[Rfam]
Source information
A member of the RNA family "mir-320 microRNA precursor family" from Microcebus murinus, 76 nucleotides long. Its family is annotated with cellular response to glucose stimulus, positive regulation of stem cell proliferation and miRNA-mediated post-transcriptional gene silencing in the Gene Ontology. Lineage of the source: Eukaryota > Dipnotetrapodomorpha > Boreoeutheria > Lemuriformes > Microcebus. A reference for the family is Berezikov et al. (2006), "Many novel mammalian microRNA candidates identified by extensive cloning and RAKE analysis", Genome Res.

RNA sequence: AAAUUCAUCCAGCUUCUCUUCCAGGUUCUUCCUGGAGUCAGGAAAAGCUGGUUUGAGAGGGGGAAAAAAAAAAAGA
Numbered sequence: 001a002a003a004u005u006c007a008u009c010c011a012g013c014u015u016c017u018c019u020u021c022c023a024g025g026u027u028c029u030u031c032c033u034g035g036a037g038u039c040a041g042g043a044a045a046a047g048c049u050g051g052u053u054u055g056a057g058a059g060g061g062g063g064a065a066a067a068a069a070a071a072a073a074a075g076a
Stems, first nucleotide, its partner, number of pairs: 014059005022051001024049002029044006